[Rfam]
The record is a 123-nucleotide RNA sequence from Paragonimus skrjabini miyazakii, which matches "U11 spliceosomal RNA" in Rfam. Pairs were carried over by alignment from the consensus structure, which is taken from published work.

RNA sequence: AAAAAGGGCCCCUACCGCGCGUGGUACCUGGCACUCUGUGGUGUCAUGCGGAAUGGCCAUCAAGACAUUCCGGGGGCAUAAUCUUUGCAUCUGAGGCGGCUGGCCAAGUUGGUUGGCGCCUCC
Numbered sequence: 001a002a003a004a005a006g007g008g009c010c011c012c013u014a015c016c017g018c019g020c021g022u023g024g025u026a027c028c029u030g031g032c033a034c035u036c037u038g039u040g041g042u043g044u045c046a047u048g049c050g051g052a053a054u055g056g057c058c059a060u061c062a063a064g065a066c067a068u069u070c071c072g073g074g075g076g077c078a079u080a081a082u083c084u085u086u087g088c089a090u091c092u093g094a095g096g097c098g099g100c101u102g103g104c105c106a107a108g109u110u111g112g113u114u115g116g117c118g119c120c121u122c123c
Stems, first nucleotide, its partner, number of pairs: 008077005013026005027048001029046007049072007094121004099117008

Source information
The family's RNA type in Rfam is spliceosomal small nuclear RNA.